[Rfam]
RNA sequence: UGCCGUCGGGAUCGCCCCCCGCCAGCGAGUUUCGCCCGCGGGGGCGCUUGCC
Numbered sequence: 001u002g003c004c005g006u007c008g009g010g011a012u013c014g015c016c017c018c019c020c021g022c023c024a025g026c027g028a029g030u031u032u033c034g035c036c037c038g039c040g041g042g043g044g045c046g047c048u049u050g051c052c
Stems, first nucleotide, its partner, number of pairs: 016044007025035004
Shown here is a 52-nucleotide RNA from Palleronia abyssalis, a member of the family "ffh sRNA".
Rfam classes the family as a small RNA.
Taxonomically the source falls in Palleronia (Bacteria, Pseudomonadati, Alphaproteobacteria, Roseobacteraceae).
A reference for the family is Meyer et al. (2009), "Identification of candidate structured RNAs in the marine organism 'Candidatus Pelagibacter ubique'", BMC Genomics.